[Rfam]
RNA sequence: CUAUAUGUACCCUGUAGAACCGAAUUUGUGUCUAAACAUAAAACCCACAAACACGUCUCUACAGGAUUACAUGGG
Numbered sequence: 001c002u003a004u005a006u007g008u009a010c011c012c013u014g015u016a017g018a019a020c021c022g023a024a025u026u027u028g029u030g031u032c033u034a035a036a037c038a039u040a041a042a043a044c045c046c047a048c049a050a051a052c053a054c055g056u057c058u059c060u061a062c063a064g065g066a067u068u069a070c071a072u073g074g075g
Stems, first nucleotide, its partner, number of pairs: 002073003006069002010065002016060003021055002025051006
Dot-bracket structure: .(((.((..((....(((..((..((((((...............))))))..))..)))...))..)).)))..
A member of the RNA family "mir-10 microRNA precursor family" from Silurus meridionalis, 75 nucleotides long. Rfam links the family to the GO terms RISC complex and miRNA-mediated post-transcriptional gene silencing. The base pairs follow the family's consensus structure, which was predicted with PFOLD. The source organism's lineage runs through Eukaryota, Vertebrata, Clupeocephala, Siluriformes and Silurus.